Notes:
The record is a 309-nucleotide RNA sequence from Sulfodiicoccus acidiphilus, which matches "Archaeal RNase P" in Rfam. The family's RNA type in Rfam is ribozyme. The family is grouped with related families in Rfam's "RNaseP clan". The source organism's lineage runs through Archaea, Thermoproteota, Thermoprotei, Sulfolobales and Sulfodiicoccus.
RNA sequence: GGGGCCGCGGAGUCGGCUGACGGGGGCUUCCUGCCCCUGAGGAAACUCCAGCCUACUGGCCAAGGACAACCUCGUGAGAGGUGGGGUCAGUAGCCCCGGCAACGGCACAGAAACUCGCGAUCGUCUAGGAAAUGAAAAUGAACCUGCCUCAAGUGGGGGCAACCUCACUUGGGUGGCGAGACUGGGACGAUCGCGUGAAAGGCCGUCCUGUCCGUAGCAAGUGAGGGUGGGCGUGAGACGGCCCGAUCCACCCCUAGAACGCGUAGCCGGAUGCCGACCAGAACAGAAGCUGGGUUACCUCGCGGCCCC
Numbered sequence: 001g002g003g004g005c006c007g008c009g010g011a012g013u014c015g016g017c018u019g020a021c022g023g024g025g026g027c028u029u030c031c032u033g034c035c036c037c038u039g040a041g042g043a044a045a046c047u048c049c050a051g052c053c054u055a056c057u058g059g060c061c062a063a064g065g066a067c068a069a070c071c072u073c074g075u076g077a078g079a080g081g082u083g084g085g086g087u088c089a090g091u092a093g094c095c096c097c098g099g100c101a102a103c104g105g106c107a108c109a110g111a112a113a114c115u116c117g118c119g120a121u122c123g124u125c126u127a128g129g130a131a132a133u134g135a136a137a138a139u140g141a142a143c144c145u146g147c148c149u150c151a152a153g154u155g156g157g158g159g160c161a162a163c164c165u166c167a168c169u170u171g172g173g174u175g176g177c178g179a180g181a182c183u184g185g186g187a188c189g190a191u192c193g194c195g196u197g198a199a200a201g202g203c204c205g206u207c208c209u210g211u212c213c214g215u216a217g218c219a220a221g222u223g224a225g226g227g228u229g230g231g232c233g234u235g236a237g238a239c240g241g242c243c244c245g246a247u248c249c250a251c252c253c254c255u256a257g258a259a260c261g262c263g264u265a266g267c268c269g270g271a272u273g274c275c276g277a278c279c280a281g282a283a284c285a286g287a288a289g290c291u292g293g294g295u296u297a298c299c300u301c302g303c304g305g306c307c308c309c
Stems, first nucleotide, its partner, number of pairs: 001309003005305005010299001012278006021039007044296003048293005053217004058243004064213005069082005083097005098208002103205004117194010143176002221260002225253005